[Rfam]
Shown here is a 107-nucleotide sequence from Oceanobacillus bengalensis, a member of the family "TPP riboswitch aptamer (THI element)".
Taxonomically the source falls in Oceanobacillus (Bacteria, Bacillota, Bacilli, Caryophanales).
The family's consensus secondary structure is taken from published work.
A search with the family's covariance model found it, with a score of 81 bits.
RNA sequence: CAUUAGCACUAGGGGGGCCUUAUAAAUGGCUGAGAAGAACAGAUUCGUUCUGACCCUUUUCACCCGAUCUGGAUAAUACCAGCGUGGGGAAGUGCGGUCGACGUGUU
Numbered sequence: 001c002a003u004u005a006g007c008a009c010u011a012g013g014g015g016g017g018c019c020u021u022a023u024a025a026a027u028g029g030c031u032g033a034g035a036a037g038a039a040c041a042g043a044u045u046c047g048u049u050c051u052g053a054c055c056c057u058u059u060u061c062a063c064c065c066g067a068u069c070u071g072g073a074u075a076a077u078a079c080c081a082g083c084g085u086g087g088g089g090a091a092g093u094g095c096g097g098u099c100g101a102c103g104u105g106u107u
Stems, first nucleotide, its partner, number of pairs: 006095005011057004016051001017030003021026001037050004063088004069082004